This 92-nucleotide RNA from Elaeis guineensis belongs to the Rfam family "mir-166 microRNA precursor family". About the family: This family represents the plant microRNA (miRNA) precursor mir-166. The organism belongs to Elaeis, within Eukaryota.
RNA sequence: GUUGAGGGGAAUGUUGGCUGGCUCGAGGCGUUUGAAUCUCUUUCUAUAAAGAUGGAGGUAAAGGCAUCGGACCAGGCUUCAUUCCUCUCAAA
Numbered sequence: 001g002u003u004g005a006g007g008g009g010a011a012u013g014u015u016g017g018c019u020g021g022c023u024c025g026a027g028g029c030g031u032u033u034g035a036a037u038c039u040c041u042u043u044c045u046a047u048a049a050a051g052a053u054g055g056a057g058g059u060a061a062a063g064g065c066a067u068c069g070g071a072c073c074a075g076g077c078u079u080c081a082u083u084c085c086u087c088u089c090a091a092a
Stems, first nucleotide, its partner, number of pairs: 002091012016077001018075004024069003